[Rfam]
RNA sequence: AUAAUCGAGAGGGCGGAAAUAAAUCCGCUCUCCUACGCGGUCAAAGUCUUGGGAGGAUGCGAUCUAGGCGCGGUUACUCGCUGCCGCCGGACACCGGAAAGCAGAUCGGACGCGUUCAAACUGCAAGGCUUCGGCCUUGCAUUUUUUU
Numbered sequence: 001a002u003a004a005u006c007g008a009g010a011g012g013g014c015g016g017a018a019a020u021a022a023a024u025c026c027g028c029u030c031u032c033c034u035a036c037g038c039g040g041u042c043a044a045a046g047u048c049u050u051g052g053g054a055g056g057a058u059g060c061g062a063u064c065u066a067g068g069c070g071c072g073g074u075u076a077c078u079c080g081c082u083g084c085c086g087c088c089g090g091a092c093a094c095c096g097g098a099a100a101g102c103a104g105a106u107c108g109g110a111c112g113c114g115u116u117c118a119a120a121c122u123g124c125a126a127g128g129c130u131u132c133g134g135c136c137u138u139g140c141a142u143u144u145u146u147u148u
Base pairs, nucleotide, nucleotide: 003148004147011030012029013028014027015026016025036114037113038112039111046058047057048056049055061107062106063105064104065103067085068084069083070081071080072079087097088096089095122141123140124139125138126137127136128135129134